[Rfam]
RNA sequence: CGGGCUGGGACACCGAAUUCAGGCAUGGAGCGGGGGAACCACACGUUCUCCGGCGCGCCGCGGCGCGCCUCGGGGUGAAGCCGGGUCACCACGAACGGCCGGGCAACCUCAGUCCGAACCCGACAGCUCACCUCGCAGGCGUGGAGGUCAAACGA
Numbered sequence: 001c002g003g004g005c006u007g008g009g010a011c012a013c014c015g016a017a018u019u020c021a022g023g024c025a026u027g028g029a030g031c032g033g034g035g036g037a038a039c040c041a042c043a044c045g046u047u048c049u050c051c052g053g054c055g056c057g058c059c060g061c062g063g064c065g066c067g068c069c070u071c072g073g074g075g076u077g078a079a080g081c082c083g084g085g086u087c088a089c090c091a092c093g094a095a096c097g098g099c100c101g102g103g104c105a106a107c108c109u110c111a112g113u114c115c116g117a118a119c120c121c122g123a124c125a126g127c128u129c130a131c132c133u134c135g136c137a138g139g140c141g142u143g144g145a146g147g148u149c150a151a152a153c154g155a
Base pairs, nucleotide, nucleotide: 011141013139014138018029019028020027030136031135032134033133034132035131040072073121074120075119081098082097083096101115102114103113104112
The family of this 155-nucleotide RNA sequence from Actinoplanes nipponensis is "c-di-AMP riboswitch aptamer (ydaO/yuaA leader)". The base pairs follow the family's consensus structure. A search with the family's covariance model found it, with a score of 64 bits.